[Rfam]
RNA sequence: GGUCAAUGAUGAACAACUCUUAAGGCUUGUUUCUCAAAACAUUCGCAGUGGCCGCCUGAGAGUUUUCGCCUUUCGCCGGGCUUGAGAGCUUAUGCUGCUUUAAUCCUUCCUUGGAUGUCUGAGACC
Numbered sequence: 001g002g003u004c005a006a007u008g009a010u011g012a013a014c015a016a017c018u019c020u021u022a023a024g025g026c027u028u029g030u031u032u033c034u035c036a037a038a039a040c041a042u043u044c045g046c047a048g049u050g051g052c053c054g055c056c057u058g059a060g061a062g063u064u065u066u067c068g069c070c071u072u073u074c075g076c077c078g079g080g081c082u083u084g085a086g087a088g089c090u091u092a093u094g095c096u097g098c099u100u101u102a103a104u105c106c107u108u109c110c111u112u113g114g115a116u117g118u119c120u121g122a123g124a125c126c
Stems, first nucleotide, its partner, number of pairs: 001126004062089006
Dot-bracket structure: ((((.........................................................((((((................)))))).................................))))
Overview: A member of the RNA family "Small nucleolar RNA SNORD14" from Gossypium aridum, 126 nucleotides long. Its family is annotated with RNA processing and nucleolus in the Gene Ontology. Lineage of the source: Eukaryota > Viridiplantae > Mesangiospermae > malvids > Gossypium. By type it is a C/D-box small nucleolar RNA. A reference for the family is Samarsky et al. (1996), "An essential domain in Saccharomyces cerevisiae U14 snoRNA is absent in vertebrates, but conserved in other yeasts", Nucleic Acids Res. Pairs were carried over by alignment from the consensus structure, which was predicted with PFOLD. U14 small nucleolar RNA (U14 snoRNA) is required for early cleavages of eukaryotic precursor rRNAs.